[Rfam]
RNA sequence: GGCCGCCGCAGUAGCGAUAUCGUAACCAGUGAGGUCCGUCCGAUGUGCGAUUGUUGCUGGUCGAAAGCUUCACCAAUACCCCGCCACGUGGACACGGACCGCCGUCCGCGUAGGCGAUUUCCGAAGGCCUUAGCGGGC
Numbered sequence: 001g002g003c004c005g006c007c008g009c010a011g012u013a014g015c016g017a018u019a020u021c022g023u024a025a026c027c028a029g030u031g032a033g034g035u036c037c038g039u040c041c042g043a044u045g046u047g048c049g050a051u052u053g054u055u056g057c058u059g060g061u062c063g064a065a066a067g068c069u070u071c072a073c074c075a076a077u078a079c080c081c082c083g084c085c086a087c088g089u090g091g092a093c094a095c096g097g098a099c100c101g102c103c104g105u106c107c108g109c110g111u112a113g114g115c116g117a118u119u120u121c122c123g124a125a126g127g128c129c130u131u132a133g134c135g136g137g138c
Stems, first nucleotide, its partner, number of pairs: 019051005025046002033041002083115003086111008127138004

U4 spliceosomal RNA: a 138-nucleotide RNA sequence from Cinara cedri. From the family's description: U4 small nuclear RNA (U4 snRNA) is a component of the major U2-dependent spliceosome. Its family is annotated with spliceosomal tri-snRNP complex assembly and U4 snRNP in the Gene Ontology. Its Rfam clan is "U4 clan". Taxonomically the source falls in Cinara (Eukaryota, Protostomia, Altocrustacea, Aphidomorpha). On this family, see Zwieb, Nucleic Acids Res 1997: "The uRNA database".